Rfam assigns this 124-nucleotide RNA from Nelumbo nucifera to the family "MIR408 microRNA precursor family".
A search with the family's covariance model found it, with a score of 90 bits.
The base pairs follow the family's consensus structure, which was predicted with WAR.
The literature on the family includes a 2004 paper in Plant Cell by Sunkar and Zhu, "Novel and stress-regulated microRNAs and other small RNAs from Arabidopsis".
RNA sequence: GCAAGAGACAGAUAGACAGACAGGGAUAAGACAGAGCAUGGGAUGGACCAUUCAACAGAGGCAUGGAGCUGUUGUUGCUCUUCCCAUGCACUGCCUCUUCCCUGGCUCUCUCUCUCUUCCCUCC
Numbered sequence: 001g002c003a004a005g006a007g008a009c010a011g012a013u014a015g016a017c018a019g020a021c022a023g024g025g026a027u028a029a030g031a032c033a034g035a036g037c038a039u040g041g042g043a044u045g046g047a048c049c050a051u052u053c054a055a056c057a058g059a060g061g062c063a064u065g066g067a068g069c070u071g072u073u074g075u076u077g078c079u080c081u082u083c084c085c086a087u088g089c090a091c092u093g094c095c096u097c098u099u100c101c102c103u104g105g106c107u108c109u110c111u112c113u114c115u116c117u118u119c120c121c122u123c124c
Stems, first nucleotide, its partner, number of pairs: 018107002021104006029096002032093003036089005042084001046080002